[Rfam]
RNA sequence: ACUUAAUCAUGAGUAAUUCUUUGAUUAAUUAGAAGUUCCUUACUUUUAAUUAAGUAUUAUGUUGUGUUUGCAUAUUGUUCGGGAAACUGAACAUAACUUCCUGUAUAUUUCGCCCUAAACUUGGGGUAAUAACACCGUACUUUACAAGUGCGGUGUUUUUUUAU
Numbered sequence: 001a002c003u004u005a006a007u008c009a010u011g012a013g014u015a016a017u018u019c020u021u022u023g024a025u026u027a028a029u030u031a032g033a034a035g036u037u038c039c040u041u042a043c044u045u046u047u048a049a050u051u052a053a054g055u056a057u058u059a060u061g062u063u064g065u066g067u068u069u070g071c072a073u074a075u076u077g078u079u080c081g082g083g084a085a086a087c088u089g090a091a092c093a094u095a096a097c098u099u100c101c102u103g104u105a106u107a108u109u110u111c112g113c114c115c116u117a118a119a120c121u122u123g124g125g126g127u128a129a130u131a132a133c134a135c136c137g138u139a140c141u142u143u144a145c146a147a148g149u150g151c152g153g154u155g156u157u158u159u160u161u162u163a164u
Stems, first nucleotide, its partner, number of pairs: 001047001006046001011045006018035001020033005076093007106128007131157008

The record is a 164-nucleotide RNA sequence from Lonepinella koalarum, which matches "GcvB RNA" in Rfam.
Taxonomically the source falls in Lonepinella (Bacteria, Pseudomonadati, Gammaproteobacteria, Pasteurellales).
From the family's description: The gcvB gene encodes a small untranslated RNA involved in expression of the dipeptide and oligopeptide transport systems in Escherichia coli.
On this family, see Urbanowski et al., Mol Microbiol 2000: "The gcvB gene encodes a small untranslated RNA involved in expression of the dipeptide and oligopeptide transport systems in Escherichia coli".
It is annotated as a non-coding RNA gene.